[Rfam]
RNA sequence: AUAAUGAUACUUCCGUCCAGUCACAGUCCGAGCGGUAACCAAUCCGUCGCAGGCAAUGAGGACGGCCGCGGGUGAUCCUCGCGGUGGUGAGAUUCCAAUGU
Dot-bracket structure: ...........(((((((.........................................))))))(((.(((.....))).)))(((.......))))...
pemK RNA: a 101-nucleotide RNA sequence. Rfam classes the family as a cis-regulatory element.